RNA: Mammalian CPEB3 ribozyme
RNA sequence: CUAGAAAAACUGGGGUUCAUUGUAGAAGCGUGCUCGUCGCAACCCCUGCCAGCCCUUUUCAGGGCUGCAAUUCUACA
Number, nucleotide and partner (000 for none) at each position: 001c000002u000003a000004g000005a000006a000007a000008a000009a000010c000011u000012g000013g046014g045015g044016u000017u042018c000019a000020u000021u077022g076023u075024a074025g073026a072027a071028g040029c039030g038031u000032g000033c000034u000035c000036g000037u000038c030039g029040c028041a000042a017043c000044c015045c014046c013047u000048g000049c000050c067051a066052g065053c064054c063055c062056u061057u000058u000059u000060c000061a056062g055063g054064g053065c052066u051067g050068c000069a000070a000071u027072u026073c025074u024075a023076c022077a021